[Rfam]
RNA sequence: AAGACGUCAAUGAUGAAUAAUCCAAUUCGUUAUCCUUGCACUUUGAUUGUUAAAUGAAGAUAAUAAUGGGGGAAUAUUAUCUGAGAUGCUU
Numbered sequence: 001a002a003g004a005c006g007u008c009a010a011u012g013a014u015g016a017a018u019a020a021u022c023c024a025a026u027u028c029g030u031u032a033u034c035c036u037u038g039c040a041c042u043u044u045g046a047u048u049g050u051u052a053a054a055u056g057a058a059g060a061u062a063a064u065a066a067u068g069g070g071g072g073a074a075u076a077u078u079a080u081c082u083g084a085g086a087u088g089c090u091u
Stems, first nucleotide, its partner, number of pairs: 002091002005088004
The record is a 91-nucleotide RNA from Capsicum annuum, which matches "Small nucleolar RNA snoR26" in Rfam. The family has 8 seed sequences and 611 matches in Rfam 15.1. Lineage of the source: Eukaryota > Gunneridae > asterids > Solanoideae > Capsicum. Its family is annotated with nucleolus and RNA processing in the Gene Ontology.